[Rfam]
tRNA: a 74-nucleotide RNA from Helicobacter didelphidarum. The family's consensus secondary structure is taken from published work. Transfer RNA (tRNA) molecules are approximately 80 nucleotides in length. Their secondary structure includes four short double-helical elements and three loops (D, anti-codon, and T loops). Further hydrogen bonds mediate the characteristic L-shaped molecular structure. tRNAs have two regions of fundamental functional importance: the anti-codon, which is responsible for specific mRNA codon recognition, and the 3' end, to which the tRNAs corresponding amino acid is attached (by aminoacyl-tRNA synthetases). tRNAs cope with the degeneracy of the genetic code in two manners: having more than one tRNA (with a specific anti-codon) for a particular amino acid; and 'wobble' base-pairing, i.e. permitting non-standard base-pairing at the 3rd anti-codon position. A search with the family's covariance model found it, with a score of 59 bits. Taxonomically the source falls in Helicobacter (Bacteria, Epsilonproteobacteria, Campylobacterales, Helicobacteraceae).
RNA sequence: AGGUCAGUAGCUCCAAUGGUUAGAGCAUCGGUCUCCAAAACCGAGUGUUGAGGGUUCGAGUCCUUCCUGGCCUG
Numbered sequence: 001a002g003g004u005c006a007g008u009a010g011c012u013c014c015a016a017u018g019g020u021u022a023g024a025g026c027a028u029c030g031g032u033c034u035c036c037a038a039a040a041c042c043g044a045g046u047g048u049u050g051a052g053g054g055u056u057c058g059a060g061u062c063c064u065u066c067c068u069g070g071c072c073u074g
Stems, first nucleotide, its partner, number of pairs: 001073007010026004028044005050066005